Ascomycota telomerase RNA: a 173-nucleotide part of an RNA from Cytospora mali. The family's RNA type in Rfam is non-coding RNA gene. The match comes from Rfam's covariance-model search (501 bits). Lineage of the source: Eukaryota > Dikarya > leotiomyceta > Diaporthales > Cytospora.
RNA sequence: ACACUUUGCUCCUCGCCACUCGGCGUCGGGCAUUCUCCCUCUCAGCUACCAGAAAUGGUUUGCAUGAGAGAUGACAGCGCAGUUUUUGAGGAUGUAUUUUGUCUGUGCGCGACUUGCCCUCCUCCGCUGCUCUUCGUAGCUCGAUGGAGAGGAAUCAAAAACCAGUCCUUGCU
Numbered sequence: 001a002c003a004c005u006u007u008g009c010u011c012c013u014c015g016c017c018a019c020u021c022g023g024c025g026u027c028g029g030g031c032a033u034u035c036u037c038c039c040u041c042u043c044a045g046c047u048a049c050c051a052g053a054a055a056u057g058g059u060u061u062g063c064a065u066g067a068g069a070g071a072u073g074a075c076a077g078c079g080c081a082g083u084u085u086u087u088g089a090g091g092a093u094g095u096a097u098u099u100u101g102u103c104u105g106u107g108c109g110c111g112a113c114u115u116g117c118c119c120u121c122c123u124c125c126g127c128u129g130c131u132c133u134u135c136g137u138a139g140c141u142c143g144a145u146g147g148a149g150a151g152g153a154a155u156c157a158a159a160a161a162c163c164a165g166u167c168c169u170u171g172c173u
Base pairs, nucleotide, nucleotide: 007032008031010030011029012028015024016023017022038073039070040069041068042067043066044065045063046062048060051056091167092166093165094162095161097160098159099158100157101156117152118151119149120148121147122146130143136140